[Rfam]
RNA sequence: GGGCGAUGAUGAGUGAUUUGCAUAGGUCUCGUUCGUCGUAACGGCAUCUUCGAUGCCUUGCCGACCAUCCUGAUAUAUCACCACCCAUAAACUGAGUCC
Numbered sequence: 001g002g003g004c005g006a007u008g009a010u011g012a013g014u015g016a017u018u019u020g021c022a023u024a025g026g027u028c029u030c031g032u033u034c035g036u037c038g039u040a041a042c043g044g045c046a047u048c049u050u051c052g053a054u055g056c057c058u059u060g061c062c063g064a065c066c067a068u069c070c071u072g073a074u075a076u077a078u079c080a081c082c083a084c085c086c087a088u089a090a091a092c093u094g095a096g097u098c099c
Stems, first nucleotide, its partner, number of pairs: 001099004046059001
A member of the RNA family "Small nucleolar RNA Z43" from Sesamum indicum, 99 nucleotides long. Pairs were carried over by alignment from the consensus structure, which was predicted with PFOLD. For this family Rfam cites "The high diversity of snoRNAs in plants: identification and comparative study of 120 snoRNA genes from Oryza sativa" (Chen et al., Nucleic Acids Res, 2003). The family's RNA type in Rfam is C/D-box small nucleolar RNA.